[Rfam]
RNA: Small nucleolar RNA SNORD115
Organism: Rattus norvegicus
RNA sequence: AGGUCAAUGAUGAGAACAGUAAGUCAAGAACAGGUUGAUGACAUAAAAAUCAUGCUCAGUAUGAACACACUGAGGCCC
Numbered sequence: 001a002g003g004u005c006a007a008u009g010a011u012g013a014g015a016a017c018a019g020u021a022a023g024u025c026a027a028g029a030a031c032a033g034g035u036u037g038a039u040g041a042c043a044u045a046a047a048a049a050u051c052a053u054g055c056u057c058a059g060u061a062u063g064a065a066c067a068c069a070c071u072g073a074g075g076c077c078c
Stems, first nucleotide, its partner, number of pairs: 002077003005072002008069002